[Rfam]
Shown here is a 118-nucleotide RNA from Propithecus coquereli, a member of the family "Y RNA". The family's consensus secondary structure is taken from published work. A search with the family's covariance model found it, with a score of 47 bits. Y RNAs are components of the Ro ribonucleoprotein particle (Ro RNP), in association with Ro60 and La proteins. The Y RNAs and Ro60 and La proteins are well conserved, but the function of the Ro RNP is not known. In humans the RNA component can be one of four small RNAs -- hY1, hY3, hY4 and hY5. These small RNAs are predicted to fold into a conserved secondary structure containing three stem structures. On this family, see Teunissen et al., Nucleic Acids Res 2000: "Conserved features of Y RNAs: a comparison of experimentally derived secondary structures".
RNA sequence: GGCUGUUCUGAAGGUAGUGACUUAUCUCAAUUGAUCGUUCCUAGUCAGUUUUACAGACUGAACUCCUUGUUUUUCUCUUCCUUCCCUUCUCACUGCUGCAAGACUUGACCAGUCUUUU
Numbered sequence: 001g002g003c004u005g006u007u008c009u010g011a012a013g014g015u016a017g018u019g020a021c022u023u024a025u026c027u028c029a030a031u032u033g034a035u036c037g038u039u040c041c042u043a044g045u046c047a048g049u050u051u052u053a054c055a056g057a058c059u060g061a062a063c064u065c066c067u068u069g070u071u072u073u074u075c076u077c078u079u080c081c082u083u084c085c086c087u088u089c090u091c092a093c094u095g096c097u098g099c100a101a102g103a104c105u106u107g108a109c110c111a112g113u114c115u116u117u118u
Stems, first nucleotide, its partner, number of pairs: 001114005007108002010106002014099002016094005044076001047073002